[Rfam]
RNA sequence: UGAAUCCCACCCAGCAAGGUUGAGCCGACCACUGGUAGUUAGCCUUGGAGUGUAAAUGGUAACAUUUACAUUUAAGCGUAGGCAAACGAGGUAGCGGGCCGAAAGCCAGAGAGCUGAAUGGAGAUAGAGCCCCGAAAUCCCUUAAUCGGGAAGGCUGAUGUGCUGGACUGCACAGAAAGCAACAUCAUGUCCGACGCUAUAGGUUAGACGAACAUGACUUCCCCGGGGUCGAAGCCCU
Numbered sequence: 001u002g003a004a005u006c007c008c009a010c011c012c013a014g015c016a017a018g019g020u021u022g023a024g025c026c027g028a029c030c031a032c033u034g035g036u037a038g039u040u041a042g043c044c045u046u047g048g049a050g051u052g053u054a055a056a057u058g059g060u061a062a063c064a065u066u067u068a069c070a071u072u073u074a075a076g077c078g079u080a081g082g083c084a085a086a087c088g089a090g091g092u093a094g095c096g097g098g099c100c101g102a103a104a105g106c107c108a109g110a111g112a113g114c115u116g117a118a119u120g121g122a123g124a125u126a127g128a129g130c131c132c133c134g135a136a137a138u139c140c141c142u143u144a145a146u147c148g149g150g151a152a153g154g155c156u157g158a159u160g161u162g163c164u165g166g167a168c169u170g171c172a173c174a175g176a177a178a179g180c181a182a183c184a185u186c187a188u189g190u191c192c193g194a195c196g197c198u199a200u201a202g203g204u205u206a207g208a209c210g211a212a213c214a215u216g217a218c219u220u221c222c223c224c225g226g227g228g229u230c231g232a233a234g235c236c237c238u
Stems, first nucleotide, its partner, number of pairs: 011035004018030004023205003038087003042083004046078002048073011127230001129229006148223006154180003159174004185217006192210002195207001
RNA: Group II catalytic intron D1-D4-6